[Rfam]
RNA sequence: CAGGGGUUGGAAUCAUGAUGCUGUGGCCCCUGCAGCGUCUAAGCGGGCGAUCACGGGGAUCUCCACACGCCCGCCGGUAUAGCCGCGCCACUAUUAAAGUAGGCCGCUGGAUGAAGCUCGCAUUGCUUCCAGCGCUCCGAAUUUUAUGUGUAGUGACGCGCCGCACGCCGUGGAGGGGUGAAGCAUGUUGGACUUGCUUCAGAAGGUGCGGAACGCCG
Numbered sequence: 001c002a003g004g005g006g007u008u009g010g011a012a013u014c015a016u017g018a019u020g021c022u023g024u025g026g027c028c029c030c031u032g033c034a035g036c037g038u039c040u041a042a043g044c045g046g047g048c049g050a051u052c053a054c055g056g057g058g059a060u061c062u063c064c065a066c067a068c069g070c071c072c073g074c075c076g077g078u079a080u081a082g083c084c085g086c087g088c089c090a091c092u093a094u095u096a097a098a099g100u101a102g103g104c105c106g107c108u109g110g111a112u113g114a115a116g117c118u119c120g121c122a123u124u125g126c127u128u129c130c131a132g133c134g135c136u137c138c139g140a141a142u143u144u145u146a147u148g149u150g151u152a153g154u155g156a157c158g159c160g161c162c163g164c165a166c167g168c169c170g171u172g173g174a175g176g177g178g179u180g181a182a183g184c185a186u187g188u189u190g191g192a193c194u195u196g197c198u199u200c201a202g203a204a205g206g207u208g209c210g211g212a213a214c215g216c217c218g
Stems, first nucleotide, its partner, number of pairs: 001032007043074006062174005084160004089155005161211006179201007